[Rfam]
RNA sequence: GGGGUGUGCAAUAGACUUACCUCCACGUGGUGCACCCUGGGCAACGUAUACUCAUACGGCAAAAAAGUCUAC
Numbered sequence: 001g002g003g004g005u006g007u008g009c010a011a012u013a014g015a016c017u018u019a020c021c022u023c024c025a026c027g028u029g030g031u032g033c034a035c036c037c038u039g040g041g042c043a044a045c046g047u048a049u050a051c052u053c054a055u056a057c058g059g060c061a062a063a064a065a066a067g068u069c070u071a072c
Base pairs, nucleotide, nucleotide: 001038002037003036004035005034006033007032019031020030021029045058046057047056048055049054
This 72-nucleotide RNA from Rodentolepis nana belongs to the Rfam family "HDV ribozyme from F. prausnitzii". On this family, see Webb et al., Science 2009: "Widespread occurrence of self-cleaving ribozymes".